[Rfam]
RNA sequence: GAUAGAGGAUCUUCGACUAAAUGCCAACACGUCGUCCUGUGUCGAAUGUCGGAGCCACCACAUCCUGUGGA
Numbered sequence: 001g002a003u004a005g006a007g008g009a010u011c012u013u014c015g016a017c018u019a020a021a022u023g024c025c026a027a028c029a030c031g032u033c034g035u036c037c038u039g040u041g042u043c044g045a046a047u048g049u050c051g052g053a054g055c056c057a058c059c060a061c062a063u064c065c066u067g068u069g070g071a
Stems, first nucleotide, its partner, number of pairs: 011054007027042004058070004
Notes: Bacillaceae-1 RNA: a 71-nucleotide RNA sequence from Lederbergia galactosidilytica. The base pairs follow the family's consensus structure, which is taken from published work.